Shown here is a 76-nucleotide RNA sequence from Mammaliicoccus stepanovicii, a member of the family "S. aureus tsr31 small RNA".
It scores 51 bits against the family's covariance model.
The organism belongs to Mammaliicoccus, within Bacteria.

[Rfam]
RNA sequence: UCCUUUAAAUAGGACAACGUAUAAAAUAUAGCGCUCCCUCCUUACAUUAUGAAUUAAUGUAAGUGGGAGCGUUUUU
Numbered sequence: 001u002c003c004u005u006u007a008a009a010u011a012g013g014a015c016a017a018c019g020u021a022u023a024a025a026a027u028a029u030a031g032c033g034c035u036c037c038c039u040c041c042u043u044a045c046a047u048u049a050u051g052a053a054u055u056a057a058u059g060u061a062a063g064u065g066g067g068a069g070c071g072u073u074u075u076u
Stems, first nucleotide, its partner, number of pairs: 001014004031072008041063009